[Rfam]
RNA: UnaL2 LINE 3' element
Organism: Coregonus sp. 'balchen'
RNA sequence: ACUUGCUGUAAAUGUAAGUCGCUCUGGAUAAGAGCGUCUGCUAAAUGACUAAAA
Numbered sequence: 001a002c003u004u005g006c007u008g009u010a011a012a013u014g015u016a017a018g019u020c021g022c023u024c025u026g027g028a029u030a031a032g033a034g035c036g037u038c039u040g041c042u043a044a045a046u047g048a049c050u051a052a053a054a
Stems, first nucleotide, its partner, number of pairs: 013043001014041003020036006